The family of this 81-nucleotide sequence from Myripristis murdjan is "Small nucleolar RNA SNORD72".
RNA sequence: GUCUUGUCAGUGAUGUUUUUAAAACACAAAUGUCUGAACAAAUGACUUCUCUGUGAUUCGUACCUUUCACUGAGACAAGAC
Numbered sequence: 001g002u003c004u005u006g007u008c009a010g011u012g013a014u015g016u017u018u019u020u021a022a023a024a025c026a027c028a029a030a031u032g033u034c035u036g037a038a039c040a041a042a043u044g045a046c047u048u049c050u051c052u053g054u055g056a057u058u059c060g061u062a063c064c065u066u067u068c069a070c071u072g073a074g075a076c077a078a079g080a081c
Stems, first nucleotide, its partner, number of pairs: 002080007
Notes:
The family's RNA type in Rfam is C/D-box small nucleolar RNA. Pairs were carried over by alignment from the consensus structure. snoRNA HBII-240 belongs to the CD family of snoRNAs. It is the human orthologue of the mouse MBII-240 and is predicted to guide 2'O-ribose methylation of the large 28S rRNA at residue U4590. Rfam links the family to the GO terms nucleolus and RNA processing.